[Rfam]
RNA sequence: CUUGAUCGACCCCAGCCACAGCGGCUCGGAGCGAUCCUGGCCAUAGGUGGCCAGCAACGCCUGGGCCUC
Number, nucleotide and partner (000 for none) at each position: 001c000002u000003u000004g000005a000006u000007c000008g000009a000010c000011c000012c000013c000014a026015g025016c024017c023018a000019c000020a000021g000022c000023g017024g016025c015026u014027c063028g000029g000030a000031g000032c059033g058034a000035u000036c000037c054038u053039g052040g000041c050042c049043a048044u000045a000046g000047g000048u043049g042050g041051c000052c039053a038054g037055c000056a000057a000058c033059g032060c000061c000062u000063g027064g000065g000066c000067c000068u000069c000

ASpks TB sRNA: a 69-nucleotide RNA sequence from Kutzneria sp. 744. A search with the family's covariance model found it, with a score of 77 bits. Rfam classes the family as an antisense RNA. Pairs were carried over by alignment from the consensus structure, which is taken from published work. The organism belongs to Kutzneria, within Bacteria.